[Rfam]
RNA sequence: ACGAAAGUCGAAGGGGAGUAGCGUUGGGUUAAUCACCCAAAUAAAGUCGUCAUUACAUGGAGUAUUCCAUCGGCUUUAUUGACCUUGAACGGUUUAGCGAGACCUUUGCCUUAAUGGCAGAGGUCUCUUUUUAUUUGGAUCCUGUCAAUUAAGGA
Numbered sequence: 001a002c003g004a005a006a007g008u009c010g011a012a013g014g015g016g017a018g019u020a021g022c023g024u025u026g027g028g029u030u031a032a033u034c035a036c037c038c039a040a041a042u043a044a045a046g047u048c049g050u051c052a053u054u055a056c057a058u059g060g061a062g063u064a065u066u067c068c069a070u071c072g073g074c075u076u077u078a079u080u081g082a083c084c085u086u087g088a089a090c091g092g093u094u095u096a097g098c099g100a101g102a103c104c105u106u107u108g109c110c111u112u113a114a115u116g117g118c119a120g121a122g123g124u125c126u127c128u129u130u131u132u133a134u135u136u137g138g139a140u141c142c143u144g145u146c147a148a149u150u151a152a153g154g155a
Stems, first nucleotide, its partner, number of pairs: 026038003040080010057070005083154005
The record is a 155-nucleotide sequence from Falsibacillus pallidus, which matches "Manganese Mn2+ riboswitch aptamer (yybP-ykoY)" in Rfam. Rfam's curators write: This RNA was originally discovered in E. coli during a large scale screen and was named SraF. The family was later found to exist upstream of related families of protein genes in many bacteria, including the the yybP and ykoK genes in B. subtilis. The pairing is the family consensus, mapped onto this sequence. It scores 57 bits against the family's covariance model.